Shown here is a 68-nucleotide sequence from Ictidomys tridecemlineatus, a member of the family "Selenocysteine insertion sequence 1".
It scores 38 bits against the family's covariance model.
Pairs were carried over by alignment from the consensus structure, which is taken from published work.
Gene Ontology term of the family: selenocysteine incorporation.
RNA sequence: GACGCUCCAUGACAGGAAGGACUGAAAUGUCUCUGGGACGCCUGGUCUUUUCUCGAUGUCCUUGCAGC
Numbered sequence: 001g002a003c004g005c006u007c008c009a010u011g012a013c014a015g016g017a018a019g020g021a022c023u024g025a026a027a028u029g030u031c032u033c034u035g036g037g038a039c040g041c042c043u044g045g046u047c048u049u050u051u052c053u054c055g056a057u058g059u060c061c062u063u064g065c066a067g068c
Stems, first nucleotide, its partner, number of pairs: 004068002014053010029039003